[Rfam]
RNA sequence: AGUUCUCGAUAAAUUUGUCUUUUUCCGCUUUGCUGCUGAUUGUUAUGAAAUCUCAACAGCAAAGUGAAAAGGUCUCCUUUAUCAGAACGUU
Numbered sequence: 001a002g003u004u005c006u007c008g009a010u011a012a013a014u015u016u017g018u019c020u021u022u023u024u025c026c027g028c029u030u031u032g033c034u035g036c037u038g039a040u041u042g043u044u045a046u047g048a049a050a051u052c053u054c055a056a057c058a059g060c061a062a063a064g065u066g067a068a069a070a071g072g073u074c075u076c077c078u079u080u081a082u083c084a085g086a087a088c089g090u091u
Stems, first nucleotide, its partner, number of pairs: 008083003012079002017074001019072007028064003033059003037055002039051002
This 91-nucleotide RNA from Heliconius melpomene belongs to the Rfam family "mir-316 microRNA precursor family". The family's consensus secondary structure was predicted with RNAalifold. Its family is annotated with RISC complex and miRNA-mediated post-transcriptional gene silencing in the Gene Ontology. The sequence is in the family's curated seed alignment.